[Rfam]
RNA sequence: CGUGCCGGGGUGGGCAGGCCCUGCGGCCAACUAACCCUAAUGGCGGCCGCGCCCCUCACGCUCGCCCGCUGUUUUACUCGCUGACUUUCAGCGGGCAAAGGGAGCGGCCCUGGGGUAGGGGAUGGGAGGGGGAAAGGGUUCCGGCCUCAAAAAAAGCCAGCGAUGGGGACCCACACCCCGGCCCACUCUGGGGUCCCUGUCCCUUCUCCGCAACCGGGGAUGCUCCCGCCUUCGCCCCUCGUGGAGGCCGCGGUCGGCAGGCUCAGCGCCACUACCGCCGCGAAGAGUUCGUCUCUGUCAGCCUUGGCGGAGGCCGGGAGCAGAGGGCCGGCCCGCCCACCCUGGGCAGCCGGGGGACCCCAGCAGAUCAAACAGGGGCGGCGCUGCCGGGCGCUGAGCAGCCGCAGCUCCCUGAGACGUGGAGUGCGCGGCCGGCGCCGCCCCGACACCC
Numbered sequence: 001c002g003u004g005c006c007g008g009g010g011u012g013g014g015c016a017g018g019c020c021c022u023g024c025g026g027c028c029a030a031c032u033a034a035c036c037c038u039a040a041u042g043g044c045g046g047c048c049g050c051g052c053c054c055c056u057c058a059c060g061c062u063c064g065c066c067c068g069c070u071g072u073u074u075u076a077c078u079c080g081c082u083g084a085c086u087u088u089c090a091g092c093g094g095g096c097a098a099a100g101g102g103a104g105c106g107g108c109c110c111u112g113g114g115g116u117a118g119g120g121g122a123u124g125g126g127a128g129g130g131g132g133a134a135a136g137g138g139u140u141c142c143g144g145c146c147u148c149a150a151a152a153a154a155a156g157c158c159a160g161c162g163a164u165g166g167g168g169a170c171c172c173a174c175a176c177c178c179c180g181g182c183c184c185a186c187u188c189u190g191g192g193g194u195c196c197c198u199g200u201c202c203c204u205u206c207u208c209c210g211c212a213a214c215c216g217g218g219g220a221u222g223c224u225c226c227c228g229c230c231u232u233c234g235c236c237c238c239u240c241g242u243g244g245a246g247g248c249c250g251c252g253g254u255c256g257g258c259a260g261g262c263u264c265a266g267c268g269c270c271a272c273u274a275c276c277g278c279c280g281c282g283a284a285g286a287g288u289u290c291g292u293c294u295c296u297g298u299c300a301g302c303c304u305u306g307g308c309g310g311a312g313g314c315c316g317g318g319a320g321c322a323g324a325g326g327g328c329c330g331g332c333c334c335g336c337c338c339a340c341c342c343u344g345g346g347c348a349g350c351c352g353g354g355g356g357a358c359c360c361c362a363g364c365a366g367a368u369c370a371a372a373c374a375g376g377g378g379c380g381g382c383g384c385u386g387c388c389g390g391g392c393g394c395u396g397a398g399c400a401g402c403c404g405c406a407g408c409u410c411c412c413u414g415a416g417a418c419g420u421g422g423a424g425u426g427c428g429c430g431g432c433c434g435g436c437g438c439c440g441c442c443c444c445g446a447c448a449c450c451c
Stems, first nucleotide, its partner, number of pairs: 005181008013172001017170001019168004051105002054102002064096008080161004085156001086154003188363007214331002222321007231311005249282005255277003260270003284296004376443010402431004409424001411422002
Shown here is a 451-nucleotide RNA sequence from Buphagus erythrorhynchus, a member of the family "Vertebrate telomerase RNA". On this family, see Chen et al., Cell 2000: "Secondary structure of vertebrate telomerase RNA". Pairs were carried over by alignment from the consensus structure, which is taken from published work. Gene Ontology terms of the family: telomere maintenance via telomerase, telomerase activity and telomerase catalytic core complex. Telomerase is a ribonucleoprotein reverse transcriptase that synthesises telomeric DNA. Telomerase RNAs differ greatly in sequence and structure between vertebrates, ciliates and yeasts, but they share a 5' pseudoknot structure close to the template sequence. Vertebrate telomerase RNAs have a 3' H/ACA snoRNA-like domain. Clan: Telomerase clan. A search with the family's covariance model found it, with a score of 140 bits. The family's RNA type in Rfam is non-coding RNA gene.